[Rfam]
The family of this 84-nucleotide RNA sequence from Robertmurraya siralis is "ZMP/ZTP riboswitch aptamer (pfl RNA motif)". The match comes from Rfam's covariance-model search (61 bits).
RNA sequence: AAAAAUCGUAGUGACUGACGACAAAGGUGGAAUCAACCACAAGGAAGCUACGUCUAUGUAUAGCCGGUCGUCUGGGCAAUAAAU
Numbered sequence: 001a002a003a004a005a006u007c008g009u010a011g012u013g014a015c016u017g018a019c020g021a022c023a024a025a026g027g028u029g030g031a032a033u034c035a036a037c038c039a040c041a042a043g044g045a046a047g048c049u050a051c052g053u054c055u056a057u058g059u060a061u062a063g064c065c066g067g068u069c070g071u072c073u074g075g076g077c078a079a080u081a082a083a084u
Stems, first nucleotide, its partner, number of pairs: 004055001007052006015044002017072005027040004061079001063077003